[Rfam]
RNA sequence: UGAGAAAAGCAGAAGUACCCACUUCUCGCCUAGGAGAUAAGGUUUCCGGGCAGAUAAUUGUGUUUUUAAACAGAAUUUUUGUGGGCUUUUGUGUAAACAAAGGCUUUUUUCUAUUAAA
Numbered sequence: 001u002g003a004g005a006a007a008a009g010c011a012g013a014a015g016u017a018c019c020c021a022c023u024u025c026u027c028g029c030c031u032a033g034g035a036g037a038u039a040a041g042g043u044u045u046c047c048g049g050g051c052a053g054a055u056a057a058u059u060g061u062g063u064u065u066u067u068a069a070a071c072a073g074a075a076u077u078u079u080u081g082u083g084g085g086c087u088u089u090u091g092u093g094u095a096a097a098c099a100a101a102g103g104c105u106u107u108u109u110u111c112u113a114u115u116a117a118a
Stems, first nucleotide, its partner, number of pairs: 011026006028051003034046005084105009
RNA: Ribosomal protein L20 leader